[Rfam]
RNA sequence: GAGGGUGGGCCCCUCGAAGGUCGGCGUGCAGGCGCAGGCCUCAAACCACCCACUGCUGCUGCGCUUAAGAGGCGUGGUGGUGAGCGAGCUGGGAAAAGGCCGGGUUCGACCCGGUGUUACGU
Numbered sequence: 001g002a003g004g005g006u007g008g009g010c011c012c013c014u015c016g017a018a019g020g021u022c023g024g025c026g027u028g029c030a031g032g033c034g035c036a037g038g039c040c041u042c043a044a045a046c047c048a049c050c051c052a053c054u055g056c057u058g059c060u061g062c063g064c065u066u067a068a069g070a071g072g073c074g075u076g077g078u079g080g081u082g083a084g085c086g087a088g089c090u091g092g093g094a095a096a097a098g099g100c101c102g103g104g105u106u107c108g109a110c111c112c113g114g115u116g117u118u119a120c121g122u
Base pairs, nucleotide, nucleotide: 001015002014003013004012005011016042018041019040020039021038022037024035025034026033027032047121049093050092051091052090054087055081056080058078059077060076062074063073064072065071098118099115100114101113102112103111
Dot-bracket structure: (((((.....)))))(.(((((.((((....)))).))))))....(.((((.(((.(((.((((.....)))).))).)).....)..))))....((((((.......)))))..)..).